[Rfam]
RNA: c-di-GMP-I riboswitch aptamer
Organism: Ferrimonas marina
RNA sequence: GGACUAACCCGCCAAACUGGUUGCGAGGCCAGGACGGAAAGCCACGGAUCUCACGAAGACCGCCGGGUUGCGUAC
Numbered sequence: 001g002g003a004c005u006a007a008c009c010c011g012c013c014a015a016a017c018u019g020g021u022u023g024c025g026a027g028g029c030c031a032g033g034a035c036g037g038a039a040a041g042c043c044a045c046g047g048a049u050c051u052c053a054c055g056a057a058g059a060c061c062g063c064c065g066g067g068u069u070g071c072g073u074a075c
Stems, first nucleotide, its partner, number of pairs: 012037002017032006040069004045065003049059002